Notes: The family of this 333-nucleotide part of an RNA from uncultured Nitrospirae bacterium MY3-5B is "Bacterial large subunit ribosomal RNA". Rfam 15.1 lists 51,934 matches to the family in 10,816 species. Rfam links the family to the GO terms structural constituent of ribosome and ribosome.
[Rfam]
RNA sequence: CGAGAGAAACCUCGCUAAGGAACUCGGCAAAAUAAUCCCGUAACUUCGGGAGAAGGGAUCCCUAUGAAAGUAGGGCGCAGAGAAAUGGCCCAAGCGACUGUUUACCAAAAACACAGGAGCCUGCAAACACGCAAGUGGAAGUAUAGGCUCUGACGCCUGCCCGGUGCCGGAAGGUUAAUGGGAGAUGUUAUCGCAAGAGAAGCAUUGAACUGAAGCCCCGGUAAACGGCGGCCGUAACUAUAACGGUCCUAAGGUAGCGAAAUUCCUUGUCGGGUAAGUUCCGACCUGCACGAAUGGCGUAACGAUUUGGGCGCUGUCUCGGCGAGGUACUCG
Numbered sequence: 001c002g003a004g005a006g007a008a009a010c011c012u013c014g015c016u017a018a019g020g021a022a023c024u025c026g027g028c029a030a031a032a033u034a035a036u037c038c039c040g041u042a043a044c045u046u047c048g049g050g051a052g053a054a055g056g057g058a059u060c061c062c063u064a065u066g067a068a069a070g071u072a073g074g075g076c077g078c079a080g081a082g083a084a085a086u087g088g089c090c091c092a093a094g095c096g097a098c099u100g101u102u103u104a105c106c107a108a109a110a111a112c113a114c115a116g117g118a119g120c121c122u123g124c125a126a127a128c129a130c131g132c133a134a135g136u137g138g139a140a141g142u143a144u145a146g147g148c149u150c151u152g153a154c155g156c157c158u159g160c161c162c163g164g165u166g167c168c169g170g171a172a173g174g175u176u177a178a179u180g181g182g183a184g185a186u187g188u189u190a191u192c193g194c195a196a197g198a199g200a201a202g203c204a205u206u207g208a209a210c211u212g213a214a215g216c217c218c219c220g221g222u223a224a225a226c227g228g229c230g231g232c233c234g235u236a237a238c239u240a241u242a243a244c245g246g247u248c249c250u251a252a253g254g255u256a257g258c259g260a261a262a263u264u265c266c267u268u269g270u271c272g273g274g275u276a277a278g279u280u281c282c283g284a285c286c287u288g289c290a291c292g293a294a295u296g297g298c299g300u301a302a303c304g305a306u307u308u309g310g311g312c313g314c315u316g317u318c319u320c321g322g323c324g325a326g327g328u329a330c331u332c333g
Base pairs, nucleotide, nucleotide: 001333002332003331004330009328010327011326012325013324014323015322016321018319019318020317035059036058037057038056039055044049060075061074062073063072064071065070076080088312089311090310091309092308093307094306095304096303099113100112101111116151117150118149119148120147121146122145123144124141128137129136130135154299155298156297157296159229160228161227164226165225166222167221168220169219170218173217174216175215180210184206185205186204187203188202191198192197230248231247232246233245234244235243249253259286269285270284271283272282273281274280
Dot-bracket structure: ((((....((((((((.(((..............(((((....(....).....)))))((((((....))))))(...).......(((((((((..(((.........)))..(((((((((...(((....)))...)..))))))))..((((.(((..(((((((..(((....(...(((((..((....))...)))))...)....))))))))..)))))((((((.......))))))(...).....(.........((((((.....))))))).........))))...)).)))))))....))).)))))))).))))